[Rfam]
RNA sequence: ACCUGUCACGGGCGCUGUGAGCGGCGCCCGGGGCAUCAGACACAGAACUGUGCCACGGGAAGAACUGGGCACUUCAGGGCGUU
Numbered sequence: 001a002c003c004u005g006u007c008a009c010g011g012g013c014g015c016u017g018u019g020a021g022c023g024g025c026g027c028c029c030g031g032g033g034c035a036u037c038a039g040a041c042a043c044a045g046a047a048c049u050g051u052g053c054c055a056c057g058g059g060a061a062g063a064a065c066u067g068g069g070c071a072c073u074u075c076a077g078g079g080c081g082u083u
Stems, first nucleotide, its partner, number of pairs: 004035004009030008050072005057065001